[Rfam]
RNA sequence: GGUUGAUGUGAGGAUGAACCUUCACAGAAACUCAACUGUUGUGUUGACCAAAAAAUACAGACUACAAUUAUCUGAUCAACC
Numbered sequence: 001g002g003u004u005g006a007u008g009u010g011a012g013g014a015u016g017a018a019c020c021u022u023c024a025c026a027g028a029a030a031c032u033c034a035a036c037u038g039u040u041g042u043g044u045u046g047a048c049c050a051a052a053a054a055a056u057a058c059a060g061a062c063u064a065c066a067a068u069u070a071u072c073u074g075a076u077c078a079a080c081c
Base pairs, nucleotide, nucleotide: 001081002080003079004078005077006076
Small nucleolar RNA Z155: an 81-nucleotide RNA from Brachypodium distachyon. NCBI's taxonomy places the organism under Eukaryota, Viridiplantae, Spermatophyta, Mesangiospermae, Brachypodium. On this family, see Chen et al., Nucleic Acids Res 2003: "The high diversity of snoRNAs in plants: identification and comparative study of 120 snoRNA genes from Oryza sativa".